[Rfam]
RNA: Group I catalytic intron
Organism: Xylaria arbuscula
RNA sequence: AUAAAGUGUAGGAAACUUUAUUAAGCCUUUAAAUCAUCAAAUUGACGGGAAAGCCUUAAAGCUAUUUAGACUAAGCAAGUUAAGUAAUUAAAUUGUGGCUCUUUCAGAGGUAAAGUAACACAUAAAUAGAUGCACGAAAGGAAAUAGGUAAUCCGCAGCCAAGCGCCAUAUAUUUAUUGUAUAAAUAUAUUUAUUGUAUAAAUAAUGGUGUGCAGUUCAUCGACUAAACGGUGGUUGGUAUUAUUAUUCAUAUAAUAUUUAAGAUAUAGUCAGACCCUAUUCGAAAGAAUACA
Numbered sequence: 001a002u003a004a005a006g007u008g009u010a011g012g013a014a015a016c017u018u019u020a021u022u023a024a025g026c027c028u029u030u031a032a033a034u035c036a037u038c039a040a041a042u043u044g045a046c047g048g049g050a051a052a053g054c055c056u057u058a059a060a061g062c063u064a065u066u067u068a069g070a071c072u073a074a075g076c077a078a079g080u081u082a083a084g085u086a087a088u089u090a091a092a093u094u095g096u097g098g099c100u101c102u103u104u105c106a107g108a109g110g111u112a113a114a115g116u117a118a119c120a121c122a123u124a125a126a127u128a129g130a131u132g133c134a135c136g137a138a139a140g141g142a143a144a145u146a147g148g149u150a151a152u153c154c155g156c157a158g159c160c161a162a163g164c165g166c167c168a169u170a171u172a173u174u175u176a177u178u179g180u181a182u183a184a185a186u187a188u189a190u191u192u193a194u195u196g197u198a199u200a201a202a203u204a205a206u207g208g209u210g211u212g213c214a215g216u217u218c219a220u221c222g223a224c225u226a227a228a229c230g231g232u233g234g235u236u237g238g239u240a241u242u243a244u245u246a247u248u249c250a251u252a253u254a255a256u257a258u259u260u261a262a263g264a265u266a267u268a269g270u271c272a273g274a275c276c277c278u279a280u281u282c283g284a285a286a287g288a289a290u291a292c293a
Stems, first nucleotide, its partner, number of pairs: 010018001032236005038230001043157002046155004054148003158216002163211002166208002172203005220272001222271005238258007278291005